[Rfam]
RNA: Streptococcus sRNA SpF03
RNA sequence: AUUGCUCGAAUUUAUCGGACUUUUUUCUAUAAAGAAUAGUUUGGACUUGAACUGUAUCUAAAAACAGAGGUUGGUCGAUUAUCAGCCUCUUUCUUGUCGUUGAAAUUA
Number, nucleotide and partner (000 for none) at each position: 001a000002u000003u000004g000005c000006u018007c017008g016009a015010a000011u000012u000013u000014a000015u009016c008017g007018g006019a000020c000021u000022u000023u000024u105025u104026u103027c102028u000029a000030u000031a000032a000033a059034g058035a057036a055037u054038a053039g052040u051041u050042u049043g000044g000045a000046c000047u000048u000049g042050a041051a040052c039053u038054g037055u036056a000057u035058c034059u033060a000061a000062a000063a000064a000065c000066a090067g089068a088069g087070g086071u085072u084073g083074g082075u081076c000077g000078a000079u000080u000081a075082u074083c073084a072085g071086c070087c069088u068089c067090u066091u000092u000093c000094u000095u000096g000097u000098c000099g000100u000101u000102g027103a026104a025105a024106u000107u000108a000